[Rfam]
A member of the RNA family "Bacterial large signal recognition particle RNA", 262 nucleotides long. About the family: The signal recognition particle (SRP) is a universally conserved ribonucleoprotein involved in the co-translational targeting of proteins to membranes.
RNA sequence: UCGUGCUACACGGGGAGCUGGCGGUGCCCUGAACCCGCAACCCGCCACAGCGGGGUGGAAUUCCUCCCCUCGGCAAGGCGCAAGGGCCAAUUUCCCAGGGAAUGGUGUUGACGGCCGGGUCCCACGCGGCGCAGGCUCGUGAACCCCGCCAGGGCUUGACGGCAGCAACGGUAAGCGAUGUCCCGUGGGUGCCGUGGGAGUGCCUGGCCCGAGCCAGUCCCGACGAUAUGCCCCCAGGCUGCAGCCAACGGGAGGUGCUCGG
Numbered sequence: 001u002c003g004u005g006c007u008a009c010a011c012g013g014g015g016a017g018c019u020g021g022c023g024g025u026g027c028c029c030u031g032a033a034c035c036c037g038c039a040a041c042c043c044g045c046c047a048c049a050g051c052g053g054g055g056u057g058g059a060a061u062u063c064c065u066c067c068c069c070u071c072g073g074c075a076a077g078g079c080g081c082a083a084g085g086g087c088c089a090a091u092u093u094c095c096c097a098g099g100g101a102a103u104g105g106u107g108u109u110g111a112c113g114g115c116c117g118g119g120u121c122c123c124a125c126g127c128g129g130c131g132c133a134g135g136c137u138c139g140u141g142a143a144c145c146c147c148g149c150c151a152g153g154g155c156u157u158g159a160c161g162g163c164a165g166c167a168a169c170g171g172u173a174a175g176c177g178a179u180g181u182c183c184c185g186u187g188g189g190u191g192c193c194g195u196g197g198g199a200g201u202g203c204c205u206g207g208c209c210c211g212a213g214c215c216a217g218u219c220c221c222g223a224c225g226a227u228a229u230g231c232c233c234c235c236a237g238g239c240u241g242c243a244g245c246c247a248a249c250g251g252g253a254g255g256u257g258c259u260c261g262g
Stems, first nucleotide, its partner, number of pairs: 001262003005258002009057003012030004017025003034054005063255006072246003078239002084233004092226001096222001098220002102218002104215003113209008121198006127189001130187003134183001137178004146171003154163003